[Rfam]
RNA sequence: AUUGGCCAGGAUCACCACCUGUCGGCGAGGGUUCGCUCACAGGUGCAAAUUUC
Numbered sequence: 001a002u003u004g005g006c007c008a009g010g011a012u013c014a015c016c017a018c019c020u021g022u023c024g025g026c027g028a029g030g031g032u033u034c035g036c037u038c039a040c041a042g043g044u045g046c047a048a049a050u051u052u053c
Stems, first nucleotide, its partner, number of pairs: 016045007025036004

Rfam assigns this 53-nucleotide sequence from Tepidicaulis marinus to the family "ffh sRNA".